Listeria sRNA rli28: a 185-nucleotide RNA sequence from Streptococcus suis. Rfam classes the family as a small RNA. Rfam 15.1 lists 345 matches to the family in 181 species.
[Rfam]
RNA sequence: UUAACUGUGCUAUAAUAGUUUUUGCAGAAAAGUAAAGACGGUGGCUCUAAUUUCUGAAAGGUAGGUGGUGUCUAUGGGCAAAUCAUCAAAAUCUAACAGAAAGGAGAAGCUAUCUUUGUCAACCUUUGAGGUCUUAACACUCAUGUUUGUAGCUGGUAACUUUGUUAUCGCUCUCGUGAUGUUAG
Numbered sequence: 001u002u003a004a005c006u007g008u009g010c011u012a013u014a015a016u017a018g019u020u021u022u023u024g025c026a027g028a029a030a031a032g033u034a035a036a037g038a039c040g041g042u043g044g045c046u047c048u049a050a051u052u053u054c055u056g057a058a059a060g061g062u063a064g065g066u067g068g069u070g071u072c073u074a075u076g077g078g079c080a081a082a083u084c085a086u087c088a089a090a091a092u093c094u095a096a097c098a099g100a101a102a103g104g105a106g107a108a109g110c111u112a113u114c115u116u117u118g119u120c121a122a123c124c125u126u127u128g129a130g131g132u133c134u135u136a137a138c139a140c141u142c143a144u145g146u147u148u149g150u151a152g153c154u155g156g157u158a159a160c161u162u163u164g165u166u167a168u169c170g171c172u173c174u175c176g177u178g179a180u181g182u183u184a185g
Stems, first nucleotide, its partner, number of pairs: 042158002045155001061097002063094004071088001118138002122134001125131001164180004169176002